[Rfam]
Nucleotides: 063
Base pairs, nucleotide, nucleotide: 012040013039014038015037016036017035024056025055026054027053028052029051030050031049032048
Number, partner (000 for none) and nucleotide at each position: 001000c002000u003000u004000c005000c006000g007000a008000u009000g010000u011000u012040g013039g014038c015037c016036c017035g018000c019000c020000a021000g022000u023000u024056a025055a026054c027053c028052u029051g030050c031049a032048c033000g034000c035017c036016g037015g038014g039013c040012c041000u042000g043000u044000u045000u046000a047000g048032g049031u050030g051029c052028a053027g054026g055025u056024u057000u058000u059000u060000u061000c062000u063000u
Description: The family of this 63-nucleotide sequence from Klebsiella pneumoniae is "RydC RNA". The source organism's lineage runs through Bacteria, Pseudomonadota, Enterobacteriaceae, Klebsiella pneumoniae complex and Klebsiella pneumoniae subsp. pneumoniae. By type it is a small RNA. Pairs were carried over by alignment from the consensus structure, which is taken from published work.